The record is a 108-nucleotide sequence from Musa acuminata, which matches "MIR168 microRNA precursor family" in Rfam.

[Rfam]
Nucleotides: 108
Stems, first nucleotide, its partner, number of pairs: 013094002017090004023084010034073005
Number, partner (000 for none) and nucleotide at each position: 001000g002000u003000c004000g005000a006000u007000g008000c009000c010000g011000c012000c013094u014093c015000c016000g017090g018089u019088u020087c021000g022000c023084u024083u025082g026081g027080u028079g029078c030077a031076g032075g033000u034073c035072g036071g037070g038069a039000a040000c041000g042000c043000c044000g045000c046000g047000a048000u049000c050000c051000g052000u053000c054000g055000g056000c057000g058000g059000a060000c061000g062000a063000g064000c065000c066000g067000c068000u069038u070037c071036c072035c073034g074000c075032c076031u077030u078029g079028c080027a081026c082025c083024a084023a085000c086000u087020g088019a089018a090017u091000c092000g093014g094013a095000g096000g097000c098000g099000g100000a101000a102000a103000g104000c105000g106000a107000c108000g
Record summary:
The literature on the family includes a 2002 paper in Cell by Rhoades et al., "Prediction of plant microRNA targets".